[Rfam]
RNA sequence: GAGUUUGAGGAAGUUAUUGGACUUAGUAGCUCGGUGAGAAAACAUUGAGGAUCUGGAGUUCUUCUUCUCCUACCGAUGCCACUAAGUCCCAUGAUUUCCUCUGCCUC
Numbered sequence: 001g002a003g004u005u006u007g008a009g010g011a012a013g014u015u016a017u018u019g020g021a022c023u024u025a026g027u028a029g030c031u032c033g034g035u036g037a038g039a040a041a042a043c044a045u046u047g048a049g050g051a052u053c054u055g056g057a058g059u060u061c062u063u064c065u066u067c068u069c070c071u072a073c074c075g076a077u078g079c080c081a082c083u084a085a086g087u088c089c090c091a092u093g094a095u096u097u098c099c100u101c102u103g104c105c106u107c
Base pairs, nucleotide, nucleotide: 001107002106003105007101008100009099010098011097012096013095014094015093016092017091019089020088021087022086023085024084025083026082027081029079030078031076032075033074034073035072036071055070056069057068058067
The family of this 107-nucleotide sequence from Malus domestica is "MIR2118_2 microRNA precursor family". Gene Ontology terms of the family: miRNA-mediated post-transcriptional gene silencing and RISC complex. The sequence is in the family's curated seed alignment.